[Rfam]
RNA sequence: GCUGAAUGAUGAUUCCCAUUUUGUCGGAUACCCCUUCACUCUCCAAUGAGUGAUAUGCUAUUUCUGACAUGC
Numbered sequence: 001g002c003u004g005a006a007u008g009a010u011g012a013u014u015c016c017c018a019u020u021u022u023g024u025c026g027g028a029u030a031c032c033c034c035u036u037c038a039c040u041c042u043c044c045a046a047u048g049a050g051u052g053a054u055a056u057g058c059u060a061u062u063u064c065u066g067a068c069a070u071g072c
Base pairs, nucleotide, nucleotide: 001072002071003069004068
Dot-bracket structure: ((((...............................................................)).))
The family of this 72-nucleotide RNA from Austrofundulus limnaeus is "Small nucleolar RNA SNORD101".
Pairs were carried over by alignment from the consensus structure, which was predicted with PFOLD.